The family of this 216-nucleotide RNA sequence from Metabacillus lacus is "T-box leader".
The family's consensus secondary structure is taken from published work.
From the family's description: Uncharged tRNA acts as the effector for transcription antitermination of genes in the T-box leader family.
For this family Rfam cites "The GA motif: an RNA element common to bacterial antitermination systems, rRNA, and eukaryotic RNAs" (Winkler et al., RNA, 2001).
RNA sequence: AUCAACGUUAUGACAGGAAGCAGUAACAGGCAGAGCUAUCUUUAGAGAGCUGGUGGACGGUGCAAAUCAGUGGUAGGCUCCUGUGAAUCCAUCCUUGAAUGAAAUGCUGAACAGGUGAUUUAGUAAGCAUUUCCGGUUUAAGCCGUUAUUCUUGAAGCUGGAGGAUGUAUGUAAUCCUCAAGUAGGGUGGCAACGCGGGUAACUCUCGUCCCUUCA
Numbered sequence: 001a002u003c004a005a006c007g008u009u010a011u012g013a014c015a016g017g018a019a020g021c022a023g024u025a026a027c028a029g030g031c032a033g034a035g036c037u038a039u040c041u042u043u044a045g046a047g048a049g050c051u052g053g054u055g056g057a058c059g060g061u062g063c064a065a066a067u068c069a070g071u072g073g074u075a076g077g078c079u080c081c082u083g084u085g086a087a088u089c090c091a092u093c094c095u096u097g098a099a100u101g102a103a104a105u106g107c108u109g110a111a112c113a114g115g116u117g118a119u120u121u122a123g124u125a126a127g128c129a130u131u132u133c134c135g136g137u138u139u140a141a142g143c144c145g146u147u148a149u150u151c152u153u154g155a156a157g158c159u160g161g162a163g164g165a166u167g168u169a170u171g172u173a174a175u176c177c178u179c180a181a182g183u184a185g186g187g188u189g190g191c192a193a194c195g196c197g198g199g200u201a202a203c204u205c206u207c208g209u210c211c212c213u214u215c216a
Stems, first nucleotide, its partner, number of pairs: 007100002015095004026084005038074003049071006102132007134145003161179006184213004195209005
Lineage of the source: Bacteria > Bacillati > Bacillota > Bacilli > Metabacillus. The family has 48 seed sequences and 19,395 matches in Rfam 15.1.